RNA sequence: UAGAAAGUAAUAGAAAGGAAGUAUGGAGGGUUUUGAUUCCUCUAGCGUAGGUUCGAUUCCUGCUUUUCUAA
Numbered sequence: 001u002a003g004a005a006a007g008u009a010a011u012a013g014a015a016a017g018g019a020a021g022u023a024u025g026g027a028g029g030g031u032u033u034u035g036a037u038u039c040c041u042c043u044a045g046c047g048u049a050g051g052u053u054c055g056a057u058u059c060c061u062g063c064u065u066u067u068c069u070a071a
Base pairs, nucleotide, nucleotide: 001070002069003068004067005066006065007064010024011023012022026042027041028040029039030038047063048062049061050060051059
This 71-nucleotide RNA from Pheucticus melanocephalus belongs to the Rfam family "tRNA". Its family is annotated with triplet codon-amino acid adaptor activity in the Gene Ontology.